[Rfam]
This 86-nucleotide sequence from Cupriavidus necator belongs to the Rfam family "Cupriavidus-1 RNA". The family's consensus secondary structure is taken from published work. It is one of the family's seed sequences.

RNA sequence: CUUGCAUUGCGGUGACCGGCGAAUCCGCCGAAGGCAAUGCAAGUUGCGUACCGGGCGUUGGCCAGACAGUGGCGGCGCGCGGCCCG
Numbered sequence: 001c002u003u004g005c006a007u008u009g010c011g012g013u014g015a016c017c018g019g020c021g022a023a024u025c026c027g028c029c030g031a032a033g034g035c036a037a038u039g040c041a042a043g044u045u046g047c048g049u050a051c052c053g054g055g056c057g058u059u060g061g062c063c064a065g066a067c068a069g070u071g072g073c074g075g076c077g078c079g080c081g082g083c084c085c086g
Stems, first nucleotide, its partner, number of pairs: 001043006007036001009035002011016001017030005052086005057076002062072003
The organism belongs to Cupriavidus necator, within Bacteria. The family's RNA type in Rfam is small RNA.